Background:
The family of this 178-nucleotide RNA from Pseudoflavonifractor capillosus is "Lysine riboswitch aptamer". The source organism's lineage runs through Bacteria, Bacillota, Clostridia, Pseudoflavonifractor and Pseudoflavonifractor capillosus. The base pairs follow the family's consensus structure, which is taken from published work. From the family's description: Riboswitches are metabolite binding domains within certain messenger RNAs that serve as precision sensors for their corresponding targets.
[Rfam]
RNA sequence: CUGCAAGAUAGAGGUUGCGGUUUUCAAAAGUAGCGCGGUGAGGGCUCCGUUGGCCCUGCGACCCGCGUCAAAGGGAAAGCCGCCGAAGGAAACACGGGUACGGAACCGUCUUUCCUGGGCGCCGGGCACAUCAGCCCUGCGACUGUCGCCGGUCCUCCGGCGGAGUGCUGUCUGCUUU
Numbered sequence: 001c002u003g004c005a006a007g008a009u010a011g012a013g014g015u016u017g018c019g020g021u022u023u024u025c026a027a028a029a030g031u032a033g034c035g036c037g038g039u040g041a042g043g044g045c046u047c048c049g050u051u052g053g054c055c056c057u058g059c060g061a062c063c064c065g066c067g068u069c070a071a072a073g074g075g076a077a078a079g080c081c082g083c084c085g086a087a088g089g090a091a092a093c094a095c096g097g098g099u100a101c102g103g104a105a106c107c108g109u110c111u112u113u114c115c116u117g118g119g120c121g122c123c124g125g126g127c128a129c130a131u132c133a134g135c136c137c138u139g140c141g142a143c144u145g146u147c148g149c150c151g152g153u154c155c156u157c158c159g160g161c162g163g164a165g166u167g168c169u170g171u172c173u174g175c176u177u178u
Stems, first nucleotide, its partner, number of pairs: 006173006017083009033068006040062001087116006094109004117144002120141003124137004146163007